The record is a 106-nucleotide RNA sequence from Paraburkholderia diazotrophica, which matches "SAM-I/IV (S-adenosyl methionine) riboswitch aptamer" in Rfam. Gene Ontology terms of the family: S-adenosylmethionine metabolic process and regulation of gene expression.
Nucleotides: 106
Base pairs, nucleotide, nucleotide: 006075007074008073009072010071017030018029019028020027021026033058034057037055038054039053040051041050042049045101046100047099048098077090078089079088080087
Number, partner (000 for none) and nucleotide at each position: 001000g002000c003000a004000a005000u006075a007074c008073a009072u010071u011000c012000c013000g014000a015000a016000u017030u018029g019028g020027g021026u022000c023000g024000a025000c026021g027020c028019c029018c030017a031000a032000g033058c034057c035000a036000a037055c038054c039053u040051g041050c042049c043000u044000c045101c046100c047099c048098g049042g050041g051040c052000a053039a054038g055037g056000u057034g058033g059000a060000a061000c062000g063000c064000g065000a066000a067000a068000g069000c070000g071010a072009a073008u074007g075006u076000g077090g078089c079088u080087c081000u082000u083000g084000a085000g086000a087080g088079a089078g090077c091000a092000a093000c094000c095000a096000a097000g098048c099047g100046g101045g102000u103000c104000a105000a106000g